[Rfam]
RNA sequence: GAUGUUGCAGACAAAGUGCGUCGAGCGGUGGUAAUGGAUAGAUCGUAAAGACGCUGCAAGUACGUCCUUGUAAGCUCGAGCCGCGCCAUCCUUGGCGCGGACGCUUU
Numbered sequence: 001g002a003u004g005u006u007g008c009a010g011a012c013a014a015a016g017u018g019c020g021u022c023g024a025g026c027g028g029u030g031g032u033a034a035u036g037g038a039u040a041g042a043u044c045g046u047a048a049a050g051a052c053g054c055u056g057c058a059a060g061u062a063c064g065u066c067c068u069u070g071u072a073a074g075c076u077c078g079a080g081c082c083g084c085g086c087c088a089u090c091c092u093u094g095g096c097g098c099g100g101a102c103g104c105u106u107u
Stems, first nucleotide, its partner, number of pairs: 013107006019027003030076002041066003045063003052056001081100008
Annotation
The family of this 107-nucleotide RNA from Pectobacterium atrosepticum is "Yersinia sRNA 224". On this family, see Righetti et al., Proc Natl Acad Sci U S A 2016: "Temperature-responsive in vitro RNA structurome of Yersinia pseudotuberculosis". Rfam classes the family as a small RNA. Taxonomically the source falls in Pectobacterium atrosepticum (Bacteria, Gammaproteobacteria, Enterobacterales, Pectobacteriaceae).